[Rfam]
RNA sequence: GACAAAGCUGAAAAUCAAUACGUCAUACGUAUUGCUCAGCCUCUAGCUUCGCUAGCUCGAUUCCGACACCAAUCCAGGUGCGUUGUGCCUUAGGCUGGCUGCCCUUGUGGCUUUAGUUUGUUCAAAGUGAACUACUGGCGGUAACUGCACACAAAGUGCAGAUCUUCCCGCUGGCUUCACUUCUGAGCAACGGUCAGUCUCUGGACUUGCACAAAACUUCUACUCUUAGUUCCGCUGCCUAUACACCAACUCUGUAAACACCAGUGACCACCGUAGGGUU
Numbered sequence: 001g002a003c004a005a006a007g008c009u010g011a012a013a014a015u016c017a018a019u020a021c022g023u024c025a026u027a028c029g030u031a032u033u034g035c036u037c038a039g040c041c042u043c044u045a046g047c048u049u050c051g052c053u054a055g056c057u058c059g060a061u062u063c064c065g066a067c068a069c070c071a072a073u074c075c076a077g078g079u080g081c082g083u084u085g086u087g088c089c090u091u092a093g094g095c096u097g098g099c100u101g102c103c104c105u106u107g108u109g110g111c112u113u114u115a116g117u118u119u120g121u122u123c124a125a126a127g128u129g130a131a132c133u134a135c136u137g138g139c140g141g142u143a144a145c146u147g148c149a150c151a152c153a154a155a156g157u158g159c160a161g162a163u164c165u166u167c168c169c170g171c172u173g174g175c176u177u178c179a180c181u182u183c184u185g186a187g188c189a190a191c192g193g194u195c196a197g198u199c200u201c202u203g204g205a206c207u208u209g210c211a212c213a214a215a216a217c218u219u220c221u222a223c224u225c226u227u228a229g230u231u232c233c234g235c236u237g238c239c240u241a242u243a244c245a246c247c248a249a250c251u252c253u254g255u256a257a258a259c260a261c262c263a264g265u266g267a268c269c270a271c272c273g274u275a276g277g278g279u280u
Base pairs, nucleotide, nucleotide: 007040008039009038010037011036016034017033018032019031020030021029022028043055044054045053046052047051064082065081067080068079069078070077118190119189120188121187122186123185128179129178130177131176145161146160147159148158149157150156
Background:
This 280-nucleotide RNA sequence from Deltacoronavirus zosteropis belongs to the Rfam family "Deltacoronavirus 5'UTR". About the family: The 5'UTR of deltacoronaviruses is similar to the 5'UTRs of alpha- and betacoronaviruses, as they also contain three helices denoted as SL1, SL2 and SL4. SL1 and SL2 have major impacts of the level of viral replication, whereas SL4 is hypothesized to play a role as a 'spacer' during the template-switch of CoV sgRNA synthesis. Taxonomically the source falls in Deltacoronavirus zosteropis (Viruses, Riboviria, Deltacoronavirus, Buldecovirus). The family is grouped with related families in Rfam's "Coronavirus 5' UTR".